Shown here is an 84-nucleotide sequence from Lentivirus humimdef1, a member of the family "HIV gag stem loop 3 (GSL3)".
Rfam's curators write: This family consists of several HIV gag stem loop 3 (GSL3) sequences. GSL3 is known to direct specific packaging of HIV-1 genomic RNA. Deletion of GSL3 leads to decreases in both viral RNA packaging and dimerisation.
The family's consensus secondary structure was predicted with PFOLD.
Its family is annotated with viral RNA genome packaging in the Gene Ontology.
RNA sequence: AGCCAGGGGGAAGGAAACGUUAUAUGAUGAAACACCUAGUCUGGGCAAGCAGGGAGCUGGAAAGAUUUGCACUUGACCCUGGCC
Numbered sequence: 001a002g003c004c005a006g007g008g009g010g011a012a013g014g015a016a017a018c019g020u021u022a023u024a025u026g027a028u029g030a031a032a033c034a035c036c037u038a039g040u041c042u043g044g045g046c047a048a049g050c051a052g053g054g055a056g057c058u059g060g061a062a063a064g065a066u067u068u069g070c071a072c073u074u075g076a077c078c079c080u081g082g083c084c
Stems, first nucleotide, its partner, number of pairs: 002083007